[Rfam]
Nucleotides: 326
Base pairs, nucleotide, nucleotide: 002326003325004323005322006321007320008319009318011317012316013270014269015268016267017266018265024075025074026073027072028071029070030069041060042059043058044057045056046055047054081310082309083308085307086306087305088304113153114152115151116150117149118148154181155180156179158177159176160175161174162173163172164171165170188213189212190211191210192209193208194207195206197205198204271296272295273294274293275292
Number, partner (000 for none) and nucleotide at each position: 001000c002326a003325u004323g005322a006321c007320c008319a009318a010000a011317g012316a013270a014269u015268c016267g017266u018265c019000a020000c021000a022000a023000a024075u025074c026073g027072a028071a029070g030069c031000u032000u033000a034000c035000a036000a037000a038000a039000u040000g041060g042059a043058g044057u045056a046055a047054a048000a049000u050000u051000u052000u053000u054047u055046u056045u057044a058043c059042u060041c061000a062000g063000u064000a065000a066000u067000a068000u069030g070029c071028u072027u073026u074025g075024g076000g077000u078000u079000g080000a081310a082309a083308g084000u085307c086306u087305c088304c089000c090000a091000c092000c093000a094000a095000u096000u097000c098000g099000u100000a101000u102000g103000c104000g105000g106000a107000a108000a109000a110000c111000g112000u113153a114152a115151u116150g117149a118148g119000a120000u121000u122000u123000a124000a125000a126000a127000a128000u129000u130000u131000u132000a133000a134000a135000u136000u137000g138000u139000u140000u141000a142000a143000a144000u145000c146000a147000a148118c149117u150116c151115a152114u153113u154181a155180a156179g157000g158177a159176g160175g161174a162173u163172g164171c165170c166000c167000u168000u169000g170165g171164g172163u173162a174161u175160u176159c177158u178000g179156c180155u181154u182000c183000u184000u185000g186000a187000c188213c189212u190211g191210g192209u193208a194207c195206c196000u197205c198204u199000a200000u201000u202000g203000c204198a205197g206195g207194g208193u209192a210191c211190u212189g213188g214000u215000g216000u217000u218000u219000u220000c221000u222000u223000c224000g225000g226000u227000a228000c229000u230000g231000g232000a233000u234000u235000c236000c237000g238000u239000u240000u241000g242000u243000a244000u245000g246000g247000a248000a249000u250000c251000u252000a253000a254000a255000c256000c257000a258000u259000a260000g261000u262000u263000a264000u265018g266017a267016c268015g269014a270013u271296u272295g273294c274293u275292c276000u277000u278000u279000c280000c281000c282000g283000u284000g285000c286000u287000g288000g289000a290000u291000c292275g293274a294273g295272u296271a297000a298000c299000c300000c301000a302000a303000u304088g305087g306086a307085g308083c309082u310081u311000a312000c313000u314000a315000u316012u317011c318009u319008u320007g321006g322005u323004c324000c325003a326002u
A member of the RNA family "RNase MRP" from Saccharomyces cerevisiae, 326 nucleotides long. Its Rfam clan is "RNaseP clan". Its family is annotated with rRNA processing, ribonuclease MRP complex and ribonuclease MRP activity in the Gene Ontology.